[Rfam]
Overview:
c-di-GMP-I riboswitch aptamer: an 82-nucleotide RNA sequence from Paenibacillus sp. IHBB 10380. It scores 77 bits against the family's covariance model. NCBI's taxonomy places the organism under Bacteria, Bacillati, Bacillota, Paenibacillaceae, Paenibacillus. The base pairs follow the family's consensus structure, which is taken from published work.

RNA sequence: CUAUAUAACAGGCAAACUAUGCGAAAGCAUGGGACGCAAAGCCACGGGUCUAAAGCAUUUGCAUGAUAGCCGGGCUGCAGAU
Numbered sequence: 001c002u003a004u005a006u007a008a009c010a011g012g013c014a015a016a017c018u019a020u021g022c023g024a025a026a027g028c029a030u031g032g033g034a035c036g037c038a039a040a041g042c043c044a045c046g047g048g049u050c051u052a053a054a055g056c057a058u059u060u061g062c063a064u065g066a067u068a069g070c071c072g073g074g075c076u077g078c079a080g081a082u
Base pairs, nucleotide, nucleotide: 012037013036017032018031019030020029021028022027040076041075042074043073045072046071047070048067049066050065055062056061